This 102-nucleotide sequence from Peribacillus faecalis belongs to the Rfam family "Purine riboswitch aptamer".
From the family's description: Riboswitches are metabolite binding domains within certain messenger RNAs that serve as precision sensors for their corresponding targets.
The source organism's lineage runs through Bacteria, Bacillati, Bacilli, Caryophanales and Peribacillus.
Pairs were carried over by alignment from the consensus structure, which is taken from published work.
A search with the family's covariance model found it, with a score of 81 bits.

RNA sequence: UCUUUAUAGUAUAUUGUUAGUCGUAUAUCUUUGGGAAUAUGGCCCGAAAGUCUCUACCAAGCUGCCGUGAACGGCUUGACUACGAUGAAAUCUAACUGGACG
Numbered sequence: 001u002c003u004u005u006a007u008a009g010u011a012u013a014u015u016g017u018u019a020g021u022c023g024u025a026u027a028u029c030u031u032u033g034g035g036a037a038u039a040u041g042g043c044c045c046g047a048a049a050g051u052c053u054c055u056a057c058c059a060a061g062c063u064g065c066c067g068u069g070a071a072c073g074g075c076u077u078g079a080c081u082a083c084g085a086u087g088a089a090a091u092c093u094a095a096c097u098g099g100a101c102g
Stems, first nucleotide, its partner, number of pairs: 018088001020086006030048006058078007
Dot-bracket structure: .................(.((((((....((((((.......)))))).........(((((((.......)))))))..)))))).)..............